The record is a 116-nucleotide sequence from Paramesorhizobium leguminum, which matches "Alphaproteobacterial ar14" in Rfam. The family has 118 seed sequences and 784 matches in Rfam 15.1. Rfam links the family to the GO term biological process involved in symbiotic interaction. The match comes from Rfam's covariance-model search (69 bits). The base pairs follow the family's consensus structure. From the family's description: Smr14C2 was renamed NfeR1 (Nodule Formation Efficiency RNA) highly expressed in salt stress and during the symbiotic interaction on legume roots. It is annotated as a small RNA.
[Rfam]
RNA sequence: AGUCGUUGGGUUCAAAUUUGGCUCCUCCCUGAACUCAAUACUGAGCAUGGCGCCUCCUCCCUGCCGUGUUCAAAAAUAUGGCCCGCUGCAUCCUCCUCCCGCAGCGGGCCUUUUUA
Dot-bracket structure: ......(((.(((.................))).)))....((((((((((...........)))))))))).......((((((((((...........))))))))))......